A member of the RNA family "L2-Alphaproteobacteria ribosomal protein leader" from Salipiger mucosus, 94 nucleotides long.
The family's RNA type in Rfam is cis-regulatory leader.
Lineage of the source: Bacteria > Pseudomonadati > Pseudomonadota > Salipiger > Salipiger mucosus.
RNA sequence: GGGGACCUUCGGGGCCCUACGACCGAGGCGGGAUCUCCCGCCGACCACAUAGCGGGCCCCACGGGGUCCCGUGUCUGAAAACGGAAGACAGAAA
Number, nucleotide and partner (000 for none) at each position: 001g018002g017003g016004g015005a000006c014007c013008u012009u000010c000011g000012g008013g007014g006015c004016c003017c002018u001019a000020c000021g000022a000023c000024c000025g000026a000027g000028g072029c071030g070031g069032g068033a067034u066035c065036u064037c063038c000039c000040g000041c000042c000043g000044a000045c000046c000047a000048c000049a000050u000051a000052g000053c000054g000055g000056g000057c000058c000059c000060c000061a000062c000063g037064g036065g035066g034067u033068c032069c031070c030071g029072u028073g000074u000075c000076u000077g000078a000079a000080a000081a000082c000083g000084g000085a000086a000087g000088a000089c000090a000091g000092a000093a000094a000